[Rfam]
RNA: transfer-messenger RNA
Organism: Flavihumibacter petaseus
RNA sequence: GGGGUUGUACUGGCUUCGACAGCGUAGAUCUUUGAACGUGUAAGCAUGUAGUGCGUUGGAUAAUUAGCACUUUAAUCUGAAUAUUCAAACUUCAAAUGGCAAUACUCAGUAUGCCAUGGCUGCCUAAUCAGUGAUUAAGUAGUCAUUAGGGCCGCUUGAGCAGGUUGGUCUGUUACCAUGCUCCGCCGCCGACUAAAAAGCAAAUACAGGCUGCUGCAACGAAAGGCUGUGACCGUUGCCUAAGACCAUCCAGCUAAGGAAAGAAUCGGUUUGUUGGUUUCCUGUUCUUUCCCGACAAAUAAUAAUCAAAUAAACAUGUAGAAAGCGUUUGGAGGAUAUGUUUGGACGGGGGUUCGACUCCCCCCAACUCCACUA
Numbered sequence: 001g002g003g004g005u006u007g008u009a010c011u012g013g014c015u016u017c018g019a020c021a022g023c024g025u026a027g028a029u030c031u032u033u034g035a036a037c038g039u040g041u042a043a044g045c046a047u048g049u050a051g052u053g054c055g056u057u058g059g060a061u062a063a064u065u066a067g068c069a070c071u072u073u074a075a076u077c078u079g080a081a082u083a084u085u086c087a088a089a090c091u092u093c094a095a096a097u098g099g100c101a102a103u104a105c106u107c108a109g110u111a112u113g114c115c116a117u118g119g120c121u122g123c124c125u126a127a128u129c130a131g132u133g134a135u136u137a138a139g140u141a142g143u144c145a146u147u148a149g150g151g152c153c154g155c156u157u158g159a160g161c162a163g164g165u166u167g168g169u170c171u172g173u174u175a176c177c178a179u180g181c182u183c184c185g186c187c188g189c190c191g192a193c194u195a196a197a198a199a200g201c202a203a204a205u206a207c208a209g210g211c212u213g214c215u216g217c218a219a220c221g222a223a224a225g226g227c228u229g230u231g232a233c234c235g236u237u238g239c240c241u242a243a244g245a246c247c248a249u250c251c252a253g254c255u256a257a258g259g260a261a262a263g264a265a266u267c268g269g270u271u272u273g274u275u276g277g278u279u280u281c282c283u284g285u286u287c288u289u290u291c292c293c294g295a296c297a298a299a300u301a302a303u304a305a306u307c308a309a310a311u312a313a314a315c316a317u318g319u320a321g322a323a324a325g326c327g328u329u330u331g332g333a334g335g336a337u338a339u340g341u342u343u344g345g346a347c348g349g350g351g352g353u354u355c356g357a358c359u360c361c362c363c364c365c366a367a368c369u370c371c372a373c374u375a
Stems, first nucleotide, its partner, number of pairs: 001371007020344003027337001029335001032332006040326002045318005050071005057087006116146008150193001152191001154189002158183004164177001166175001168211006216239006225255005258292009268282002274309003278304001348364005